[Rfam]
RNA sequence: UAGGGGAGACAAGGUUUGGCCCCCCUCCCUGAACCUAGGGUAACCCUAAAAGUAGAGGGGGA
Numbered sequence: 001u002a003g004g005g006g007a008g009a010c011a012a013g014g015u016u017u018g019g020c021c022c023c024c025c026u027c028c029c030u031g032a033a034c035c036u037a038g039g040g041u042a043a044c045c046c047u048a049a050a051a052g053u054a055g056a057g058g059g060g061g062a
Stems, first nucleotide, its partner, number of pairs: 008041001010039001012036004016031001018029002022060006